[Rfam]
The record is a 121-nucleotide sequence from Oxalicibacterium flavum, which matches "ZMP/ZTP riboswitch aptamer (pfl RNA motif)" in Rfam.
RNA sequence: UUCGUCUCGCGUGAUUGGCGAAUCGGGGCGAUCUUCGUGCAUCUUGUGCUGAUCGUUCCCCAAGGUGGGCAUAUCCACCGUGAAGCGCGAGAUUUCAUUGCCGUGCGCCUGGGUAGCCCGA
Numbered sequence: 001u002u003c004g005u006c007u008c009g010c011g012u013g014a015u016u017g018g019c020g021a022a023u024c025g026g027g028g029c030g031a032u033c034u035u036c037g038u039g040c041a042u043c044u045u046g047u048g049c050u051g052a053u054c055g056u057u058c059c060c061c062a063a064g065g066u067g068g069g070c071a072u073a074u075c076c077a078c079c080g081u082g083a084a085g086c087g088c089g090a091g092a093u094u095u096c097a098u099u100g101c102c103g104u105g106c107g108c109c110u111g112g113g114u115a116g117c118c119c120g121a
Stems, first nucleotide, its partner, number of pairs: 004093009015082001017109004065078004098116005
The base pairs follow the family's consensus structure, which is taken from published work.